[Rfam]
RNA sequence: UUGCAUGUGGAAAUGCCUUCUCAUUCCUUUUGGAGCAGGAAUAAAUCCAUAACAUGUUACGUUAAAAAAGGAGUGUUCCGAGCUGCCAGCCUUACAGUAGAGGUUGAUUUGUGGUAGAUUUUUCCUAUACAA
Dot-bracket structure: ..((((((.......(((.(((..........))).)))............))))))............((((........((...(((((((......)))))))....)).........)))).......
RNA: Small nucleolar RNA U109
Organism: Castor canadensis